[Rfam]
RNA sequence: CUUACGGUGCUUAUUGGCAUUCUGUCCACCUCCAACCCUUCCUUUUUCAUGGCACCAACAGCAUCAAAAGAAAGACAUGGAGGUGGACAGCCUGCCAACUGAGCUCCGUAGG
Numbered sequence: 001c002u003u004a005c006g007g008u009g010c011u012u013a014u015u016g017g018c019a020u021u022c023u024g025u026c027c028a029c030c031u032c033c034a035a036c037c038c039u040u041c042c043u044u045u046u047u048c049a050u051g052g053c054a055c056c057a058a059c060a061g062c063a064u065c066a067a068a069a070g071a072a073a074g075a076c077a078u079g080g081a082g083g084u085g086g087a088c089a090g091c092c093u094g095c096c097a098a099c100u101g102a103g104c105u106c107c108g109u110a111g112g
Base pairs, nucleotide, nucleotide: 011102014098015097016096017095018094019093023089024088025087026086027085028084029083030082031081032080033079
This 112-nucleotide RNA sequence from Musa troglodytarum belongs to the Rfam family "MIR394 microRNA precursor family".
Its family is annotated with miRNA-mediated post-transcriptional gene silencing and RISC complex in the Gene Ontology.
For this family Rfam cites "Computational identification of plant microRNAs and their targets, including a stress-induced miRNA" (Jones-Rhoades and Bartel, Mol Cell, 2004).
Rfam 15.1 lists 724 matches to the family in 216 species.